Burkholderia sRNA Bp1_Cand612_SIPHT: a 102-nucleotide RNA from Trinickia soli. By type it is a small RNA. A search with the family's covariance model found it, with a score of 100 bits.
RNA sequence: AAAAAAAAUGGGCGAAACGCCCAUCAUCCUCUUACCGGUGCUCGCACCUGAGCCGCACAAACAACAGCCGCACGCCCAGCGACUUUGUGAGUUUAGCAUUUU
Numbered sequence: 001a002a003a004a005a006a007a008a009u010g011g012g013c014g015a016a017a018c019g020c021c022c023a024u025c026a027u028c029c030u031c032u033u034a035c036c037g038g039u040g041c042u043c044g045c046a047c048c049u050g051a052g053c054c055g056c057a058c059a060a061a062c063a064a065c066a067g068c069c070g071c072a073c074g075c076c077c078a079g080c081g082a083c084u085u086u087g088u089g090a091g092u093u094u095a096g097c098a099u100u101u102u
Stems, first nucleotide, its partner, number of pairs: 008024007040092006050085003054081003

For this family Rfam cites "Computational discovery and RT-PCR validation of novel Burkholderia conserved and Burkholderia pseudomallei unique sRNAs" (Khoo et al., BMC Genomics, 2012). Pairs were carried over by alignment from the consensus structure, which was predicted with RNAalifold.